[Rfam]
RNA sequence: CUUAAAAAAUUAAUAAAUUUUCGUAUAAUUUUGGAGAUAUGGUCCAUAAGUUUCUACCAGACUACCACAAAUGGUCUGACUACGGGAGAUUUGUUUUGAUAC
Numbered sequence: 001c002u003u004a005a006a007a008a009a010u011u012a013a014u015a016a017a018u019u020u021u022c023g024u025a026u027a028a029u030u031u032u033g034g035a036g037a038u039a040u041g042g043u044c045c046a047u048a049a050g051u052u053u054c055u056a057c058c059a060g061a062c063u064a065c066c067a068c069a070a071a072u073g074g075u076c077u078g079a080c081u082a083c084g085g086g087a088g089a090u091u092u093g094u095u096u097u098g099a100u101a102c
Stems, first nucleotide, its partner, number of pairs: 018088008029049002032046004058078007

A member of the RNA family "Purine riboswitch aptamer" from Anaerovirgula multivorans, 102 nucleotides long. Its family is annotated with purine nucleobase biosynthetic process in the Gene Ontology. The source organism's lineage runs through Bacteria, Bacillati, Clostridia, Natronincolaceae and Anaerovirgula.